[Rfam]
RNA sequence: CUGGCAGUUCCCAGCUGUGAGAACUGAAUUCCAUGAACUGGUUCCAGCUUGUUGUCUUCAGUCCAUGGUAGUCAGUUCUCUAGCUUGGCUGUCUCUG
Numbered sequence: 001c002u003g004g005c006a007g008u009u010c011c012c013a014g015c016u017g018u019g020a021g022a023a024c025u026g027a028a029u030u031c032c033a034u035g036a037a038c039u040g041g042u043u044c045c046a047g048c049u050u051g052u053u054g055u056c057u058u059c060a061g062u063c064c065a066u067g068g069u070a071g072u073c074a075g076u077u078c079u080c081u082a083g084c085u086u087g088g089c090u091g092u093c094u095c096u097g
Base pairs, nucleotide, nucleotide: 010088011087013085014084015083020079021078022077023076024075025074026073027072035064037062038061039060040059